[Rfam]
RNA sequence: CGCCCACAAUCUGUUCAAACGGUUUCAACACGGAUGUAUUCGGGCGCGCUGUGCAAAAGCCGCGUGUCCGGUGGCAGACUUUUGGUCCGAGCUCUCUUACCGGGGGCAUCCGUGUUGGGAUCGUUCUUCGAAUGGAAAGGCAUUCGAACAUCCCACGAUUGGUCUCCUCGCGCUAACCCCGUAGCGUGUGGUUUUUAGCGGGCUCCAGGCCCGCUUUUUUU
Numbered sequence: 001c002g003c004c005c006a007c008a009a010u011c012u013g014u015u016c017a018a019a020c021g022g023u024u025u026c027a028a029c030a031c032g033g034a035u036g037u038a039u040u041c042g043g044g045c046g047c048g049c050u051g052u053g054c055a056a057a058a059g060c061c062g063c064g065u066g067u068c069c070g071g072u073g074g075c076a077g078a079c080u081u082u083u084g085g086u087c088c089g090a091g092c093u094c095u096c097u098u099a100c101c102g103g104g105g106g107c108a109u110c111c112g113u114g115u116u117g118g119g120a121u122c123g124u125u126c127u128u129c130g131a132a133u134g135g136a137a138a139g140g141c142a143u144u145c146g147a148a149c150a151u152c153c154c155a156c157g158a159u160u161g162g163u164c165u166c167c168u169c170g171c172g173c174u175a176a177c178c179c180c181g182u183a184g185c186g187u188g189u190g191g192u193u194u195u196u197a198g199c200g201g202g203c204u205c206c207a208g209g210c211c212c213g214c215u216u217u218u219u220u221u
Base pairs, nucleotide, nucleotide: 004162005161006160018125019124020123021122022121023120024119025118026117027116028115029114030113032111033110034109035108036107037106038080040078044069048067049066093105094104095103096102130141166191167190169188170187171186172185173184174183175182197215198214199213200212201211202210203209204208
Burkholderia sRNA Bp1_Cand871_SIPHT: a 221-nucleotide RNA sequence from Burkholderia sp. YI23. Rfam links the family to the GO term bacterial biofilm matrix. It is annotated as a small RNA.